This 67-nucleotide RNA from Bacillus sp. J14TS2 belongs to the Rfam family "Bacillaceae-1 RNA". It is annotated as a small RNA. The source organism's lineage runs through Bacteria, Bacillati, Bacilli, Bacillaceae and Bacillus.
[Rfam]
RNA sequence: GAGAAAGGAUGAACAGCUAAGUUCGCGCCAUCCUGGCGCAACGCUGUUCUGACCAACUUCCUGUUGG
Numbered sequence: 001g002a003g004a005a006a007g008g009a010u011g012a013a014c015a016g017c018u019a020a021g022u023u024c025g026c027g028c029c030a031u032c033c034u035g036g037c038g039c040a041a042c043g044c045u046g047u048u049c050u051g052a053c054c055a056a057c058u059u060c061c062u063g064u065u066g067g
Base pairs, nucleotide, nucleotide: 011049012048013047014046015045016044017043025039026038027037028036029035053067054066055065056064057063